[Rfam]
RNA sequence: AACCCCCCGAAAUCUGUCAUCAACUUGGCGGAAGAGUCAGAUAUCAGGGGGUCGAAAGCAGGCGCUGGCCUGUGAAGGAUUAUAGCAAAUGCAUAACCUAACACAACCCCCUUUCACCGCCAUA
Numbered sequence: 001a002a003c004c005c006c007c008c009g010a011a012a013u014c015u016g017u018c019a020u021c022a023a024c025u026u027g028g029c030g031g032a033a034g035a036g037u038c039a040g041a042u043a044u045c046a047g048g049g050g051g052u053c054g055a056a057a058g059c060a061g062g063c064g065c066u067g068g069c070c071u072g073u074g075a076a077g078g079a080u081u082a083u084a085g086c087a088a089a090u091g092c093a094u095a096a097c098c099u100a101a102c103a104c105a106a107c108c109c110c111c112u113u114u115c116a117c118c119g120c121c122a123u124a
Base pairs, nucleotide, nucleotide: 002052003051004050005049006048007047009045010044012042013041014040015039016038018036020035021034026119027118028117030115031114032113
Annotation
This 124-nucleotide RNA sequence from Erwinia sp. OLSSP12 belongs to the Rfam family "Pseudoknot of the regulatory region of the repBA gene". For this family Rfam cites "The replication of an IncL/M plasmid is subject to antisense control" (Athanasopoulos et al., J Bacteriol, 1995). The base pairs follow the family's consensus structure, which is taken from published work. It is annotated as a cis-regulatory element.